[Rfam]
RNA: Small nucleolar RNA SNORA44
Organism: Tauraco erythrolophus
RNA sequence: GUGCAUGUUUAUCCAAGAGCUGUGGCUCCACGCAGUAGCUGCAGGUCUCCAACAACAUGCCAGAGCAACGGGAAGGUCUUUGACUGCUGGGCCCCGUUUGCCUGUGGCUGUCACUCGCCCCUCCUAUAUGU
Numbered sequence: 001g002u003g004c005a006u007g008u009u010u011a012u013c014c015a016a017g018a019g020c021u022g023u024g025g026c027u028c029c030a031c032g033c034a035g036u037a038g039c040u041g042c043a044g045g046u047c048u049c050c051a052a053c054a055a056c057a058u059g060c061c062a063g064a065g066c067a068a069c070g071g072g073a074a075g076g077u078c079u080u081u082g083a084c085u086g087c088u089g090g091g092c093c094c095c096g097u098u099u100g101c102c103u104g105u106g107g108c109u110g111u112c113a114c115u116c117g118c119c120c121c122u123c124c125u126a127u128a129u130g131u
Stems, first nucleotide, its partner, number of pairs: 013044001018040002020035005071124003075120002086111002089103003